A member of the RNA family "Glycine riboswitch aptamer" from Bailinhaonella thermotolerans, 97 nucleotides long. Its family is annotated with glycine biosynthetic process in the Gene Ontology. The match comes from Rfam's covariance-model search (67 bits).
[Rfam]
RNA sequence: AGACCUUGUGCGGGAGAGAUUCCACGCCAGCCAGUGUGGGACGCCGAAGGAGCAAUCCUCCCCGGAAACUCUCAGGCACCCGUACCGCACAGGAGAG
Numbered sequence: 001a002g003a004c005c006u007u008g009u010g011c012g013g014g015a016g017a018g019a020u021u022c023c024a025c026g027c028c029a030g031c032c033a034g035u036g037u038g039g040g041a042c043g044c045c046g047a048a049g050g051a052g053c054a055a056u057c058c059u060c061c062c063c064g065g066a067a068a069c070u071c072u073c074a075g076g077c078a079c080c081c082g083u084a085c086c087g088c089a090c091a092g093g094a095g096a097g
Base pairs, nucleotide, nucleotide: 006092007091008090009089010088011087012086013085020041021040022039023038024037025036026035027034043077044076045075046073047072050071051070052069056066057065